Rfam assigns this 348-nucleotide RNA sequence from Methanoculleus bourgensis to the family "Archaeal RNase P". Lineage of the source: Archaea > Methanobacteriati > Methanobacteriota > Methanomicrobiales > Methanoculleus. Rfam describes the family as follows. Ribonuclease P (RNase P) is a ubiquitous endoribonuclease, found in archaea, bacteria and eukarya as well as chloroplasts and mitochondria. Its best characterised activity is the generation of mature 5'-ends of tRNAs by cleaving the 5'-leader elements of precursor-tRNAs. Cellular RNase Ps are ribonucleoproteins. RNA from bacterial RNase Ps retains its catalytic activity in the absence of the protein subunit, i.e. it is a ribozyme. Isolated eukaryotic and archaeal RNase P RNA has not been shown to retain its catalytic function, but is still essential for the catalytic activity of the holoenzyme. Although the archaeal and eukaryotic holoenzymes have a much greater protein content than the bacterial ones, the RNA cores from all the three lineages are homologous -- helices corresponding to P1, P2, P3, P4, and P10/11 are common to all cellular RNase P RNAs. Yet, there is considerable sequence variation, particularly among the eukaryotic RNAs. A reference for the family is Frank and Pace (1998), "Ribonuclease P: unity and diversity in a tRNA processing ribozyme", Annu Rev Biochem.
RNA sequence: GAGAGGGAGAGUGCGGCCGACGGUGGCACAUGCUUUGUGCUGCUGAGGAAAGUCCUCCCACCGGCCAGAUACGCAGCCGCAUGCAAGUGCGGGUGGCGAGAGUCACGGCAAUGACACAGAAACGACACGGCCCGCCGUCAGUGAUGAAACGACUGAGCCCCCGUUAACGGGGCGAGAAGCGCACUCGUUUGCGCAAGCAACUCGUUGAACGUAGCGGCGGGAUACGAUGAAACGGUGAAUCCCUGCGGGUGCAAGCCAGAAUAGGCAGAUGGAUUGUCUGGUAUCCGCCCAGGUAUGGCGCGUAGCUGAAUGCCGCACAGAACAGAAGGAGGCUUACUCCUCCCACUC
Numbered sequence: 001g002a003g004a005g006g007g008a009g010a011g012u013g014c015g016g017c018c019g020a021c022g023g024u025g026g027c028a029c030a031u032g033c034u035u036u037g038u039g040c041u042g043c044u045g046a047g048g049a050a051a052g053u054c055c056u057c058c059c060a061c062c063g064g065c066c067a068g069a070u071a072c073g074c075a076g077c078c079g080c081a082u083g084c085a086a087g088u089g090c091g092g093g094u095g096g097c098g099a100g101a102g103u104c105a106c107g108g109c110a111a112u113g114a115c116a117c118a119g120a121a122a123c124g125a126c127a128c129g130g131c132c133c134g135c136c137g138u139c140a141g142u143g144a145u146g147a148a149a150c151g152a153c154u155g156a157g158c159c160c161c162c163g164u165u166a167a168c169g170g171g172g173c174g175a176g177a178a179g180c181g182c183a184c185u186c187g188u189u190u191g192c193g194c195a196a197g198c199a200a201c202u203c204g205u206u207g208a209a210c211g212u213a214g215c216g217g218c219g220g221g222a223u224a225c226g227a228u229g230a231a232a233c234g235g236u237g238a239a240u241c242c243c244u245g246c247g248g249g250u251g252c253a254a255g256c257c258a259g260a261a262u263a264g265g266c267a268g269a270u271g272g273a274u275u276g277u278c279u280g281g282u283a284u285c286c287g288c289c290c291a292g293g294u295a296u297g298g299c300g301c302g303u304a305g306c307u308g309a310a311u312g313c314c315g316c317a318c319a320g321a322a323c324a325g326a327a328g329g330a331g332g333c334u335u336a337c338u339c340c341u342c343c344c345a346c347u348c
Stems, first nucleotide, its partner, number of pairs: 001348003005344005010338002012317006021045010050335003054332005059251004064282006072247005077092005093106005107242002112238001114236002128226002131221008149205004255299004264289003268285001